[Rfam]
RNA: Small nucleolar RNA Z155
Organism: Ipomoea nil
RNA sequence: CAUCGAGGUGAGGAUAAUCGAUUCGGAAAGGAUAUAUGUCGAUCGGAAAUACUUCCAGACUACAAUUAUCUGAUCGAUG
Numbered sequence: 001c002a003u004c005g006a007g008g009u010g011a012g013g014a015u016a017a018u019c020g021a022u023u024c025g026g027a028a029a030g031g032a033u034a035u036a037u038g039u040c041g042a043u044c045g046g047a048a049a050u051a052c053u054u055c056c057a058g059a060c061u062a063c064a065a066u067u068a069u070c071u072g073a074u075c076g077a078u079g
Stems, first nucleotide, its partner, number of pairs: 001079006